[Rfam]
RNA sequence: UCGAGAGUUCAGGGCCAUAGCAGAAGUGCUCAUGGCACAGCCAUGUCAGUUUCCAGUGAAUCUGUAAAUUCUGCU
Number, nucleotide and partner (000 for none) at each position: 001u000002c000003g000004a000005g000006a000007g000008u000009u000010c000011a000012g000013g042014g041015c040016c000017a000018u000019a075020g074021c073022a072023g071024a070025a069026g038027u037028g036029c000030u000031c000032a000033u000034g000035g000036c028037a027038c026039a000040g015041c014042c013043a000044u000045g000046u000047c064048a063049g062050u000051u060052u059053c058054c000055a000056g000057u000058g053059a052060a051061u000062c049063u048064g047065u000066a000067a000068a000069u025070u024071c023072u022073g021074c020075u019